[Rfam]
The family of this 108-nucleotide sequence from Bradyrhizobium erythrophlei is "Guanidine-I riboswitch aptamer".

Nucleotides: 108
Base pairs, nucleotide, nucleotide: 007059008058009057010056011055012054015049016048020046021045022043023040024039025038026037027036028035061080062079063078064077065076066075067074083103085106089101090100091099
Number, partner (000 for none) and nucleotide at each position: 001000a002000g003000u004000u005000g006000a007059u008058g009057c010056g011055a012054c013000u014000a015049g016048g017000g018000u019000u020046c021045c022043g023040g024039c025038u026037g027036c028035u029000c030000g031000u032000u033000g034000a035028a036027g037026c038025g039024g040023u041000g042000u043022c044000u045021g046020g047000u048016c049015c050000g051000a052000g053000a054012g055011u056010c057009g058008c059007a060000a061080u062079c063078c064077g065076g066075c067074c068000c069000a070000u071000u072000c073000a074067g075066g076065c077064c078063g079062g080061a081000c082000a083103c084000a085106c086000g087000g088000c089101g090100g091099g092000a093000u094000a095000a096000a097000a098000g099091c100090c101089c102000g103083g104000g105000a106085g107000g108000u
Lineage of the source: Bacteria > Pseudomonadati > Pseudomonadota > Alphaproteobacteria > Bradyrhizobium.